The family of this 93-nucleotide sequence is "PhotoRC-II RNA". It is one of the family's seed sequences. Pairs were carried over by alignment from the consensus structure, which is taken from published work.
RNA sequence: GUACGUUACAUUCUCCUCAAACCGAGACCUAUAGGGAAUUAAAACACGUCUCUAAUACCAACCCUGGAGGGUAGGGUUGGAAUACUUAUAUCA
Numbered sequence: 001g002u003a004c005g006u007u008a009c010a011u012u013c014u015c016c017u018c019a020a021a022c023c024g025a026g027a028c029c030u031a032u033a034g035g036g037a038a039u040u041a042a043a044a045c046a047c048g049u050c051u052c053u054a055a056u057a058c059c060a061a062c063c064c065u066g067g068a069g070g071g072u073a074g075g076g077u078u079g080g081a082a083u084a085c086u087u088a089u090a091u092c093a
Stems, first nucleotide, its partner, number of pairs: 014036004024052005058080007
By type it is a cis-regulatory element.